The family of this 77-nucleotide RNA from Mus musculus is "Small nucleolar RNA SNORD121A". The family's RNA type in Rfam is C/D-box small nucleolar RNA. Gene Ontology terms of the family: RNA processing and nucleolus.
RNA sequence: CUGGAAAAGGCAGUGAUGUUUCCAAGCACAUAUCUGACUUAUAUGUGUGGAUGGUAAUAAUGCUGAGUCUUUUCCGA
Numbered sequence: 001c002u003g004g005a006a007a008a009g010g011c012a013g014u015g016a017u018g019u020u021u022c023c024a025a026g027c028a029c030a031u032a033u034c035u036g037a038c039u040u041a042u043a044u045g046u047g048u049g050g051a052u053g054g055u056a057a058u059a060a061u062g063c064u065g066a067g068u069c070u071u072u073u074c075c076g077a
Stems, first nucleotide, its partner, number of pairs: 002076005008070004